[Rfam]
RNA: Small nucleolar RNA snR60/Z15/Z230/Z193/J17
RNA sequence: CUGAUACAAUGAUGAGAUUAUAGUUCAGCUGAAUAACCAUGUUGAAACGGGGAUCAUUUGUCUUUCGCCCCUAUCUGAUGUAUCGU
Numbered sequence: 001c002u003g004a005u006a007c008a009a010u011g012a013u014g015a016g017a018u019u020a021u022a023g024u025u026c027a028g029c030u031g032a033a034u035a036a037c038c039a040u041g042u043u044g045a046a047a048c049g050g051g052g053a054u055c056a057u058u059u060g061u062c063u064u065u066c067g068c069c070c071c072u073a074u075c076u077g078a079u080g081u082a083u084c085g086u
Base pairs, nucleotide, nucleotide: 004083005082006081007080008079